This 57-nucleotide RNA from Skermanella stibiiresistens belongs to the Rfam family "terC RNA". The match comes from Rfam's covariance-model search (58 bits). NCBI's taxonomy places the organism under Bacteria, Alphaproteobacteria, Azospirillaceae, Skermanella, Skermanella stibiiresistens. Rfam 15.1 lists 1,112 matches to the family in 772 species. It is annotated as a cis-regulatory element.

[Rfam]
Nucleotides: 057
Stems, first nucleotide, its partner, number of pairs: 007050006022040007
Number, partner (000 for none) and nucleotide at each position: 001000g002000u003000u004000u005000c006000a007050g008049u009048c010047c011046g012045g013000g014000c015000c016000c017000c018000u019000c020000u021000g022040g023039c024038g025037a026036c027035c028034c029000c030000u031000c032000c033000c034028g035027g036026g037025u038024c039023g040022u041000g042000a043000u044000g045012u046011c047010g048009g049008a050007c051000g052000u053000g054000a055000c056000g057000c